[Rfam]
RNA sequence: AUAGCACCUUAGGGGUGCUCAACCACUGCCGGUUGGGCUGAGAAAACACCCUCACUACCUGAUCCGGGUAAUGCCGGCGAAGGGAAAAGGUGCAACAGCAAAG
Number, nucleotide and partner (000 for none) at each position: 001a000002u000003a000004g000005c000006a091007c090008c089009u088010u087011a052012g051013g050014g049015g000016u046017g038018c037019u036020c035021a034022a033023c032024c031025a000026c000027u000028g000029c000030c000031g024032g023033u022034u021035g020036g019037g018038c017039u000040g000041a000042g000043a000044a000045a000046a016047c000048a000049c014050c013051c012052u011053c000054a000055c000056u000057a000058c083059c082060u081061g000062a000063u000064c077065c076066g075067g074068g000069u000070a000071a000072u000073g000074c067075c066076g065077g064078c000079g000080a000081a060082g059083g058084g000085a000086a000087a010088a009089g008090g007091u006092g000093c000094a000095a000096c000097a000098g000099c000100a000101a000102a000103g000
Source information: TPP riboswitch aptamer (THI element): a 103-nucleotide RNA from Thermonema lapsum. Taxonomically the source falls in Thermonema (Bacteria, Bacteroidota, Cytophagales, Thermonemataceae). A search with the family's covariance model found it, with a score of 67 bits.